[Rfam]
RNA: Plant signal recognition particle RNA
RNA sequence: GUCGAGCUCGGUCGCGCGAGCUUGUAACCCAAGUGGGGACAUCAAGGUGAUUGAACACUGGUCGGGUUUCACCUGGUAGAUGCUGGUGUGCACGCUAUGUUGACUCGCCCGUUCCAAGUUGGGAGUUGGUUGCAUUGUCCGGGCGAAGGCUUGGGCUGUGUGAUCACUAUAGCGGAGGGCACUGCGUCAGGCUGGUUUCACAGCUGGUUUCACAGAUCAACGAACACCUCCCGCUCUUGACAGUGGAAGGAUUACGAGCCGAUGUGCCCCAGUUCCAACUCAGCCUGGUGAGCCGAGAACAACCAUUUUU
Numbered sequence: 001g002u003c004g005a006g007c008u009c010g011g012u013c014g015c016g017c018g019a020g021c022u023u024g025u026a027a028c029c030c031a032a033g034u035g036g037g038g039a040c041a042u043c044a045a046g047g048u049g050a051u052u053g054a055a056c057a058c059u060g061g062u063c064g065g066g067u068u069u070c071a072c073c074u075g076g077u078a079g080a081u082g083c084u085g086g087u088g089u090g091c092a093c094g095c096u097a098u099g100u101u102g103a104c105u106c107g108c109c110c111g112u113u114c115c116a117a118g119u120u121g122g123g124a125g126u127u128g129g130u131u132g133c134a135u136u137g138u139c140c141g142g143g144c145g146a147a148g149g150c151u152u153g154g155g156c157u158g159u160g161u162g163a164u165c166a167c168u169a170u171a172g173c174g175g176a177g178g179g180c181a182c183u184g185c186g187u188c189a190g191g192c193u194g195g196u197u198u199c200a201c202a203g204c205u206g207g208u209u210u211c212a213c214a215g216a217u218c219a220a221c222g223a224a225c226a227c228c229u230c231c232c233g234c235u236c237u238u239g240a241c242a243g244u245g246g247a248a249g250g251a252u253u254a255c256g257a258g259c260c261g262a263u264g265u266g267c268c269c270c271a272g273u274u275c276c277a278a279c280u281c282a283g284c285c286u287g288g289u290g291a292g293c294c295g296a297g298a299a300c301a302a303c304c305a306u307u308u309u310u
Base pairs, nucleotide, nucleotide: 001040002039003038004023005022006021007020008019009018010017028037029036030035044309045308046307047306048305049304051302052301053300056297065294066293067292069291070290071289072288073287075285076284077283079276082273083272084271085270086269088268090267091266092265100262101261102260104258105257106256107255109250110249112248113247114246115245116244118241119240120239121238122237123236124235125234126233127166128165129164130163131162132161133160134159135158137156138155139154140153141152142151143150144149167172174231175230176229177228178227183224185222186221187220192215193214194213